[Rfam]
RNA: SAM riboswitch aptamer (S box leader)
Organism: Peribacillus asahii
RNA sequence: CACUUAUCGAGAGAGGCGGAGGGACUGGCCCGACGAAGCCCGGCAACCGGUAUAAUCUACACGGUGCUAAUUCCAGCAGAGUAUUCGCUCUGAAAGAUAAGAA
Numbered sequence: 001c002a003c004u005u006a007u008c009g010a011g012a013g014a015g016g017c018g019g020a021g022g023g024a025c026u027g028g029c030c031c032g033a034c035g036a037a038g039c040c041c042g043g044c045a046a047c048c049g050g051u052a053u054a055a056u057c058u059a060c061a062c063g064g065u066g067c068u069a070a071u072u073c074c075a076g077c078a079g080a081g082u083a084u085u086c087g088c089u090c091u092g093a094a095a096g097a098u099a100a101g102a103a
Base pairs, nucleotide, nucleotide: 003101004100005099006098007097008096013041015040016039017038021031022030023029025076026075027074028073042068043067044066045065047064048063049060051059052058072095077092078091079090080089081088082087